[Rfam]
Shown here is a 108-nucleotide RNA sequence from Vibrio rumoiensis, a member of the family "t44 RNA". For this family Rfam cites "Transcriptome analysis of Escherichia coli using high-density oligonucleotide probe arrays" (Tjaden et al., Nucleic Acids Res, 2002).

RNA sequence: CAUACUUAUUUCUUAAAUCACACACAUUCCGACACGUGAUCCGGGGUGCUCUUUUACGCUAAUUUUAUAGUGAAAGGGUCGGUAUCAUGGGGGGUGUGGAGGCCUAAC
Number, nucleotide and partner (000 for none) at each position: 001c000002a000003u000004a000005c000006u000007u000008a000009u000010u000011u000012c000013u000014u000015a000016a000017a000018u000019c000020a000021c000022a000023c098024a097025c096026a095027u094028u093029c092030c091031g000032a000033c000034a000035c089036g088037u087038g086039a085040u000041c082042c081043g080044g000045g000046g000047u000048g079049c078050u077051c076052u075053u074054u073055u072056a071057c070058g000059c000060u000061a000062a000063u000064u000065u000066u000067a000068u000069a000070g057071u056072g055073a054074a053075a052076g051077g050078g049079u048080c043081g042082g041083u000084a000085u039086c038087a037088u036089g035090g000091g030092g029093g028094g027095u026096g025097u024098g023099g000100a000101g000102g000103c000104c000105u000106a000107a000108c000